The family of this 133-nucleotide sequence from Physcomitrium patens is "MIR1222 microRNA precursor family".
The source organism's lineage runs through Eukaryota, Streptophyta, Bryophyta, Funariaceae and Physcomitrium.
[Rfam]
RNA sequence: ACACGACAUAGCUGGUUGUUGUGGGCAUUCUUGUGCUAGUAAACUCCUUCAUGCAGAAGUGCGCUUCUAGCACCUGCUUGAAGGAGUUCAUUGGUAUAUAAAUGCCCACAACAUGAUGACCGAUUAACGUGAG
Numbered sequence: 001a002c003a004c005g006a007c008a009u010a011g012c013u014g015g016u017u018g019u020u021g022u023g024g025g026c027a028u029u030c031u032u033g034u035g036c037u038a039g040u041a042a043a044c045u046c047c048u049u050c051a052u053g054c055a056g057a058a059g060u061g062c063g064c065u066u067c068u069a070g071c072a073c074c075u076g077c078u079u080g081a082a083g084g085a086g087u088u089c090a091u092u093g094g095u096a097u098a099u100a101a102a103u104g105c106c107c108a109c110a111a112c113a114u115g116a117u118g119a120c121c122g123a124u125u126a127a128c129g130u131g132a133g
Base pairs, nucleotide, nucleotide: 017113018112019111020110021109023107024106025105026104027103028102029101033097034096035095036094037093038092039091040090042088043087044086045085046084047083048082049081050080051079054076056074059071060070
The family's consensus secondary structure was predicted with RNAalifold. The family has 5 seed sequences and 5 matches in Rfam 15.1. On this family, see Axtell et al., Plant Cell 2007: "Common functions for diverse small RNAs of land plants". Gene Ontology terms of the family: RISC complex and miRNA-mediated post-transcriptional gene silencing.